[Rfam]
Rfam assigns this 134-nucleotide RNA from Physeter macrocephalus to the family "Small nucleolar RNA SNORA31". The match comes from Rfam's covariance-model search (42 bits). Rfam's curators write: ACA31 (SNORA31) belongs to the H/ACA class of snoRNAs which are thought to guide the sites of modification of uridines to pseudouridines. ACA31 is predicted to guide the pseudouridylation of U3713 in 28S rRNA and U218 in 18S rRNA. This family includes the mouse homologue snoMBI-161. Gene Ontology terms of the family: nucleolus and RNA processing.
RNA sequence: AUGCAUCUAUUUGACAAACCUGAGCAGUUACUAUCUACUGUUAAAGUUUCCACUACAGAUGCUAGAAAAGAAGUGUCCUCACAUUUUCUGUCUGUCUGAUUGUGGCAGCCAAGACUGAAUAGAGGAAAAGAAGA
Numbered sequence: 001a002u003g004c005a006u007c008u009a010u011u012u013g014a015c016a017a018a019c020c021u022g023a024g025c026a027g028u029u030a031c032u033a034u035c036u037a038c039u040g041u042u043a044a045a046g047u048u049u050c051c052a053c054u055a056c057a058g059a060u061g062c063u064a065g066a067a068a069a070g071a072a073g074u075g076u077c078c079u080c081a082c083a084u085u086u087u088c089u090g091u092c093u094g095u096c097u098g099a100u101u102g103u104g105g106c107a108g109c110c111a112a113g114a115c116u117g118a119a120u121a122g123a124g125g126a127a128a129a130g131a132a133g134a
Stems, first nucleotide, its partner, number of pairs: 003062006012052002016049004023039002026036002076126005084117001087114003092108005
Record summary
NCBI's taxonomy places the organism under Eukaryota, Metazoa, Euteleostomi, Cetacea, Physeter. The literature on the family includes a 2001 paper in EMBO J by Huttenhofer et al., "RNomics: an experimental approach that identifies 201 candidates for novel, small, non-messenger RNAs in mouse". Rfam classes the family as an H/ACA-box small nucleolar RNA.